[Rfam]
RNA sequence: UUCUCCCUGUCUAACACCGGGACCUUUUGAUUCACUGCAGUGUUCUGGCUCAGUAAGGGGACAGAGUACUCUGCUCUCUUCCCUCCCUACUGGAUGAGGUUCCACCUAGGGCCUGAGAGAAGCGCACAGU
Dot-bracket structure: ...(((((..(.....((((((.((.(.........).))..))))))....)..)))))...........(((.((.......(((((.(((........)))..))))).........)).)))....